This 176-nucleotide RNA from Oryza barthii belongs to the Rfam family "MIR807 microRNA precursor family". Rfam links the family to the GO terms miRNA-mediated post-transcriptional gene silencing and RISC complex. The base pairs follow the family's consensus structure, which was predicted with WAR. The family has 30 seed sequences and 1,514 matches in Rfam 15.1.
RNA sequence: AACCACACUAUCGAUGAAUGGAUUCACCCAUGAUAUGACGUGGUUGUUUUAUCUAGGAUGUGGACGUGGCAUCCUAUUAAUUUUGUGCGAUGGUUGGUAAUAGGAUGCCAUGUCCUCGUCCUAGGUGAAACAACCGCGUCAUUUCACGGAUGAAUCCAUCUAUUGAUAGUGUGGUU
Numbered sequence: 001a002a003c004c005a006c007a008c009u010a011u012c013g014a015u016g017a018a019u020g021g022a023u024u025c026a027c028c029c030a031u032g033a034u035a036u037g038a039c040g041u042g043g044u045u046g047u048u049u050u051a052u053c054u055a056g057g058a059u060g061u062g063g064a065c066g067u068g069g070c071a072u073c074c075u076a077u078u079a080a081u082u083u084u085g086u087g088c089g090a091u092g093g094u095u096g097g098u099a100a101u102a103g104g105a106u107g108c109c110a111u112g113u114c115c116u117c118g119u120c121c122u123a124g125g126u127g128a129a130a131c132a133a134c135c136g137c138g139u140c141a142u143u144u145c146a147c148g149g150a151u152g153a154a155u156c157c158a159u160c161u162a163u164u165g166a167u168a169g170u171g172u173g174g175u176u
Base pairs, nucleotide, nucleotide: 001176002175003174004173005172006171007170009168010167011166012165013164014163015162018159019158021156022155023154024153025152026151028149031146032145033144035142036141037140038139039138041136042135043134044133045132046131047130048129051126052125054123055122057120058119063114064113065112069108070107071106072105073104074103075102076101077100078099079098